[Rfam]
RNA: Small nucleolar RNA SNORD79
RNA sequence: UGCUGUUAGUGAUGAUUUUUGAAAAUAACAGAUGGGAAUCUCUCUGAAAAACAAUGAAGAUUAAUUUUUAAAAACUGAAACAGUA
Numbered sequence: 001u002g003c004u005g006u007u008a009g010u011g012a013u014g015a016u017u018u019u020u021g022a023a024a025a026u027a028a029c030a031g032a033u034g035g036g037a038a039u040c041u042c043u044c045u046g047a048a049a050a051a052c053a054a055u056g057a058a059g060a061u062u063a064a065u066u067u068u069u070a071a072a073a074a075c076u077g078a079a080a081c082a083g084u085a
Base pairs, nucleotide, nucleotide: 001085002084003083004082005081006080007079